[Rfam]
RNA: mir-7398 microRNA precursor family
RNA sequence: AGUGUAGAGGUGGAUAAGGUACUGUGCUCUUUCUCAAGUAAUUUAUCCACCUCUCACAAU
Numbered sequence: 001a002g003u004g005u006a007g008a009g010g011u012g013g014a015u016a017a018g019g020u021a022c023u024g025u026g027c028u029c030u031u032u033c034u035c036a037a038g039u040a041a042u043u044u045a046u047c048c049a050c051c052u053c054u055c056a057c058a059a060u
Stems, first nucleotide, its partner, number of pairs: 002057003006054012021039003